[Rfam]
RNA sequence: GAUGCAGCCCGAAAGAAAUGAACUUCUCCAAAGGAAAACGGAGUGAUCCGUGAGUACGAGGAGAAGCGAUCGGGGUUGCAUCUUCCGUCUUGAAACACGG
Numbered sequence: 001g002a003u004g005c006a007g008c009c010c011g012a013a014a015g016a017a018a019u020g021a022a023c024u025u026c027u028c029c030a031a032a033g034g035a036a037a038a039c040g041g042a043g044u045g046a047u048c049c050g051u052g053a054g055u056a057c058g059a060g061g062a063g064a065a066g067c068g069a070u071c072g073g074g075g076u077u078g079c080a081u082c083u084u085c086c087g088u089c090u091u092g093a094a095a096c097a098c099g100g
Base pairs, nucleotide, nucleotide: 001082002081003080004079005078006077007076008075009074010073015071016070023066024065025064026063027062028061029060033057038051039050040049041048042047085100086099087098088097